The record is a 120-nucleotide sequence, which matches "c-di-GMP-II-GAG riboswitch aptamer" in Rfam. Its Rfam clan is "c-di-GMP_II riboswitch clan". The literature on the family includes a 2017 paper in Proc Natl Acad Sci U S A by Weinberg et al., "Bioinformatic analysis of riboswitch structures uncovers variant classes with altered ligand specificity".
[Rfam]
Nucleotides: 120
Base pairs, nucleotide, nucleotide: 004117005116006115008113009112010111011110013095014094015093022089023088024087025086026085027084028083029082036107037106038103039102040101041100042099
Number, partner (000 for none) and nucleotide at each position: 001000a002000c003000a004117c005116c006115g007000g008113a009112g010111c011110g012000a013095g014094g015093c016000a017000u018000g019000g020000a021000c022089g023088c024087c025086g026085g027084g028083u029082g030000c031000u032000u033000g034000a035000c036107g037106g038103u039102c040101a041100c042099c043000g044000c045000g046000c047000c048000g049000c050000c051000g052000g053000c054000c055000c056000a057000c058000c059000a060000g061000g062000a063000c064000a065000u066000g067000g068000u069000g070000g071000g072000a073000c074000g075000g076000c077000g078000u079000c080000g081000a082029u083028a084027c085026c086025c087024g088023g089022c090000c091000g092000a093015g094014c095013c096000a097000g098000u099042g100041g101040u102039g103038a104000g105000a106037c107036c108000g109000g110011c111010g112009c113008u114000g115006c116005g117004g118000a119000c120000c